[Rfam]
RNA sequence: AAUCAUGAGCGUCAGCAAAAGCCCUGGCUAGCUGGCCGGCAACCCUCUAUACGGUAGCGGGGUGCUCCAGGUGAGGAUUCGGUGUCGUGCAACACCGCACGAUACAAGUACCGCAC
Numbered sequence: 001a002a003u004c005a006u007g008a009g010c011g012u013c014a015g016c017a018a019a020a021g022c023c024c025u026g027g028c029u030a031g032c033u034g035g036c037c038g039g040c041a042a043c044c045c046u047c048u049a050u051a052c053g054g055u056a057g058c059g060g061g062g063u064g065c066u067c068c069a070g071g072u073g074a075g076g077a078u079u080c081g082g083u084g085u086c087g088u089g090c091a092a093c094a095c096c097g098c099a100c101g102a103u104a105c106a107a108g109u110a111c112c113g114c115a116c
Stems, first nucleotide, its partner, number of pairs: 001079004009037001011036006020029002038066003043062003047057002082105009
This 116-nucleotide sequence from Glutamicibacter sp. BW77 belongs to the Rfam family "SAM (S-adenosyl methionine) riboswitch aptamer". The match comes from Rfam's covariance-model search (88 bits). NCBI's taxonomy places the organism under Bacteria, Bacillati, Micrococcales, Micrococcaceae, Glutamicibacter. The family is grouped with related families in Rfam's "SAM clan". The family's consensus secondary structure is taken from published work.